Rfam assigns this 59-nucleotide RNA sequence from Ictalurus punctatus to the family "mir-129 microRNA precursor family".
The family's consensus secondary structure was predicted with RNAalifold.
RNA sequence: UUUGGGGUAAGGGCUUCCUGGCUACUGGUUCAAGGAACAGCAAGCCCAGACCGCAAAAA
Numbered sequence: 001u002u003u004g005g006g007g008u009a010a011g012g013g014c015u016u017c018c019u020g021g022c023u024a025c026u027g028g029u030u031c032a033a034g035g036a037a038c039a040g041c042a043a044g045c046c047c048a049g050a051c052c053g054c055a056a057a058a059a
Stems, first nucleotide, its partner, number of pairs: 001057004006052003011047004016042001018040002
The sequence is in the family's curated seed alignment. NCBI's taxonomy places the organism under Eukaryota, Eumetazoa, Craniata, Euteleostomi, Ictalurus.